This 208-nucleotide sequence from Paraburkholderia panacisoli belongs to the Rfam family "Burkholderia sRNA Bp1_Cand738_SIPHT".
For this family Rfam cites "Computational discovery and RT-PCR validation of novel Burkholderia conserved and Burkholderia pseudomallei unique sRNAs" (Khoo et al., BMC Genomics, 2012).
The base pairs follow the family's consensus structure, which was predicted with RNAalifold.
The match comes from Rfam's covariance-model search (193 bits).
The organism belongs to Paraburkholderia, within Bacteria.
Rfam classes the family as a small RNA.
RNA sequence: CGAAAUACCAGCGUCGACAAGCGCUGGUGAGAACUUCAAUAGCCGUCAAAUACCGUGCAGGGGGCGGUAAAGCGGUGACGCGUCGCGUCAGAUGGGACCGGGGGCAAUGGUAAAAAGGUUCAUGCCCUGCAACCAAUGUGAACGGAUUCUAUGCAGGGUUUUAUAGAUCGUCAACACUAUAAAACAGCAAAAGUAUAACUAUUUGUAA
Numbered sequence: 001c002g003a004a005a006u007a008c009c010a011g012c013g014u015c016g017a018c019a020a021g022c023g024c025u026g027g028u029g030a031g032a033a034c035u036u037c038a039a040u041a042g043c044c045g046u047c048a049a050a051u052a053c054c055g056u057g058c059a060g061g062g063g064g065c066g067g068u069a070a071a072g073c074g075g076u077g078a079c080g081c082g083u084c085g086c087g088u089c090a091g092a093u094g095g096g097a098c099c100g101g102g103g104g105c106a107a108u109g110g111u112a113a114a115a116a117g118g119u120u121c122a123u124g125c126c127c128u129g130c131a132a133c134c135a136a137u138g139u140g141a142a143c144g145g146a147u148u149c150u151a152u153g154c155a156g157g158g159u160u161u162u163a164u165a166g167a168u169c170g171u172c173a174a175c176a177c178u179a180u181a182a183a184a185c186a187g188c189a190a191a192a193g194u195a196u197a198a199c200u201a202u203u204u205g206u207a208a
Stems, first nucleotide, its partner, number of pairs: 008027007043110004051069005077089005137176003142171004148167004